Rfam assigns this 73-nucleotide RNA from Homarus americanus to the family "mir-219 microRNA precursor family".
Rfam 15.1 lists 1,318 matches to the family in 774 species.
It scores 65 bits against the family's covariance model.
RNA sequence: CCCGGCCUUGAUUGUCCAAACGCAAUUCUUGUGGUGCUGGAGUCAAGAACUGUGUAUGGACAUCUAUGCUUGG
Numbered sequence: 001c002c003c004g005g006c007c008u009u010g011a012u013u014g015u016c017c018a019a020a021c022g023c024a025a026u027u028c029u030u031g032u033g034g035u036g037c038u039g040g041a042g043u044c045a046a047g048a049a050c051u052g053u054g055u056a057u058g059g060a061c062a063u064c065u066a067u068g069c070u071u072g073g
Stems, first nucleotide, its partner, number of pairs: 002072001004070003010064003014061005021054004026049006